[Rfam]
RNA sequence: GCAUUCUAUCCUUCAUUCCACCGGAGUCUGUGUCUUUGACCAAUCAGAUUUCAGUGGAGUGAAGAAUAUAAGGCA
Numbered sequence: 001g002c003a004u005u006c007u008a009u010c011c012u013u014c015a016u017u018c019c020a021c022c023g024g025a026g027u028c029u030g031u032g033u034c035u036u037u038g039a040c041c042a043a044u045c046a047g048a049u050u051u052c053a054g055u056g057g058a059g060u061g062a063a064g065a066a067u068a069u070a071a072g073g074c075a
Stems, first nucleotide, its partner, number of pairs: 011064006019056003023052004028047003
The family of this 75-nucleotide RNA sequence from Electrophorus electricus is "mir-205 microRNA precursor family". The match comes from Rfam's covariance-model search (82 bits). Rfam links the family to the GO terms miRNA-mediated post-transcriptional gene silencing and RISC complex. Lineage of the source: Eukaryota > Bilateria > Deuterostomia > Teleostomi > Electrophorus. Rfam 15.1 lists 1,154 matches to the family in 646 species.